[Rfam]
RNA: Bacterial RNase P class A
Organism: Streptomyces lividans
RNA sequence: CGAGCCGGGCGGGCGGCCGCGUGGAGUCCCUCACGGGACUUCCCGAGGAACGUCCGGGCUCCACAGGGCAGGGUGAUGGCUAACGGCCACCCGGGGUGACCCGCGGGACAGUGCCACAGAAAGCAGACCGCCGGAGGCUUCGGCCCCCGGUAAGGGUGAAACGGUGGUGUAAGAGACCACCAGUGCCCAGGGCGACCUGGGCAGCUAGGUAAACCCCACCCGGAGCAAGGUCAAGAAGGAAGCGCCCCGGUGCUUCUGCGCGGACGUUCGAGGGCUGCCCGCCCGAGUCCGCGGGUAGACCGCUGGAGGCCGGUGGCAACGCCGGUCCUAGAUGGAUGGCCGUCGCCGACGGGACCCGCGAGGCCCCGUCGGAACAGAACCCGGCGUACAGCCCGACUCGUCUG
Numbered sequence: 001c002g003a004g005c006c007g008g009g010c011g012g013g014c015g016g017c018c019g020c021g022u023g024g025a026g027u028c029c030c031u032c033a034c035g036g037g038a039c040u041u042c043c044c045g046a047g048g049a050a051c052g053u054c055c056g057g058g059c060u061c062c063a064c065a066g067g068g069c070a071g072g073g074u075g076a077u078g079g080c081u082a083a084c085g086g087c088c089a090c091c092c093g094g095g096g097u098g099a100c101c102c103g104c105g106g107g108a109c110a111g112u113g114c115c116a117c118a119g120a121a122a123g124c125a126g127a128c129c130g131c132c133g134g135a136g137g138c139u140u141c142g143g144c145c146c147c148c149g150g151u152a153a154g155g156g157u158g159a160a161a162c163g164g165u166g167g168u169g170u171a172a173g174a175g176a177c178c179a180c181c182a183g184u185g186c187c188c189a190g191g192g193c194g195a196c197c198u199g200g201g202c203a204g205c206u207a208g209g210u211a212a213a214c215c216c217c218a219c220c221c222g223g224a225g226c227a228a229g230g231u232c233a234a235g236a237a238g239g240a241a242g243c244g245c246c247c248c249g250g251u252g253c254u255u256c257u258g259c260g261c262g263g264a265c266g267u268u269c270g271a272g273g274g275c276u277g278c279c280c281g282c283c284c285g286a287g288u289c290c291g292c293g294g295g296u297a298g299a300c301c302g303c304u305g306g307a308g309g310c311c312g313g314u315g316g317c318a319a320c321g322c323c324g325g326u327c328c329u330a331g332a333u334g335g336a337u338g339g340c341c342g343u344c345g346c347c348g349a350c351g352g353g354a355c356c357c358g359c360g361a362g363g364c365c366c367c368g369u370c371g372g373a374a375c376a377g378a379a380c381c382c383g384g385c386g387u388a389c390a391g392c393c394c395g396a397c398u399c400g401u402c403u404g
Base pairs, nucleotide, nucleotide: 001400002399003398004397006395007394008393009392010391011389012344013343014342015341016340017339018338020045021044023042024041025040026039027038028037050387051386052385054384055383056382057381058380059225060224061223062222066280067279068278069277071221072220073219074218075217077089078088079087080086091105092103093102094101095100106216107215111214112213113210114209115208128155129154130151131150132149133148134147136145137144138143163181164180165179166178167177168176183205184203185202186201187200188199189198190197191196229301230300231299232298260292261291262290263289264288265287272284273283274282275281308327309326310325311324312323313322314321315320